[Rfam]
RNA sequence: GUGCAUGACAAAGCGCCAGAGCUUGCGAUGGGGAACGCUGUACAGGGAAUUACAAUUGUGCAGGCGUUAGCAAGCUGACGAGGUGAAGGUGUUCGAAAUUUUCGGCGGGGACCUUCCGGUUAAGUAUUCAGACCGCAAAUCGCAGCGUAAAUCGGUUGGGUGACCAGCCGCACAAUCGCACGAUGGAAUACAA
Numbered sequence: 001g002u003g004c005a006u007g008a009c010a011a012a013g014c015g016c017c018a019g020a021g022c023u024u025g026c027g028a029u030g031g032g033g034a035a036c037g038c039u040g041u042a043c044a045g046g047g048a049a050u051u052a053c054a055a056u057u058g059u060g061c062a063g064g065c066g067u068u069a070g071c072a073a074g075c076u077g078a079c080g081a082g083g084u085g086a087a088g089g090u091g092u093u094c095g096a097a098a099u100u101u102u103c104g105g106c107g108g109g110g111a112c113c114u115u116c117c118g119g120u121u122a123a124g125u126a127u128u129c130a131g132a133c134c135g136c137a138a139a140u141c142g143c144a145g146c147g148u149a150a151a152u153c154g155g156u157u158g159g160g161u162g163a164c165c166a167g168c169c170g171c172a173c174a175a176u177c178g179c180a181c182g183a184u185g186g187a188a189u190a191c192a193a
Stems, first nucleotide, its partner, number of pairs: 020076007085116005093105004117135005139184004145179001153170007
RNA: glmS glucosamine-6-phosphate activated ribozyme aptamer
Organism: Paenibacillaceae bacterium